[Rfam]
RNA sequence: AAGUUUUAUGUAUUGAAUUUGGACCAAGUAGGGGCAUCAAGGUGUUGGAACAUAUCCCUAGCUUGCUAGGAUAGAUUGAUUGGUGCCAAUUGGUUGGCCUGCCUACUGACCUACUCUAAGUUGAGAGUUGAGUCACGAGGCUUAUGUGAAGGCUUUUGCUUCAUGUCUCCUAGAUUGGAGGGCACUGCGUGAGGCUGGAUUUAUAGAGCAGUAACUACCUCCAACUCCCAACAGUGGAGGGGUUACAGGCUACAGCACUACCAGUCCAUGAUUCCUCUUGAGCCUAGCUAUUUGGACCAACAAUUUA
Numbered sequence: 001a002a003g004u005u006u007u008a009u010g011u012a013u014u015g016a017a018u019u020u021g022g023a024c025c026a027a028g029u030a031g032g033g034g035c036a037u038c039a040a041g042g043u044g045u046u047g048g049a050a051c052a053u054a055u056c057c058c059u060a061g062c063u064u065g066c067u068a069g070g071a072u073a074g075a076u077u078g079a080u081u082g083g084u085g086c087c088a089a090u091u092g093g094u095u096g097g098c099c100u101g102c103c104u105a106c107u108g109a110c111c112u113a114c115u116c117u118a119a120g121u122u123g124a125g126a127g128u129u130g131a132g133u134c135a136c137g138a139g140g141c142u143u144a145u146g147u148g149a150a151g152g153c154u155u156u157u158g159c160u161u162c163a164u165g166u167c168u169c170c171u172a173g174a175u176u177g178g179a180g181g182g183c184a185c186u187g188c189g190u191g192a193g194g195c196u197g198g199a200u201u202u203a204u205a206g207a208g209c210a211g212u213a214a215c216u217a218c219c220u221c222c223a224a225c226u227c228c229c230a231a232c233a234g235u236g237g238a239g240g241g242g243u244u245a246c247a248g249g250c251u252a253c254a255g256c257a258c259u260a261c262c263a264g265u266c267c268a269u270g271a272u273u274c275c276u277c278u279u280g281a282g283c284c285u286a287g288c289u290a291u292u293u294g295g296a297c298c299a300a301c302a303a304u305u306u307a
Stems, first nucleotide, its partner, number of pairs: 001020006008013001024032002039306003043302006051294002054291002057287001061283005068276004074266005080260001083258003087255001095252007103241002114239005120232004125227004130169003134165002137162005144155001146153002176223006189212002195206003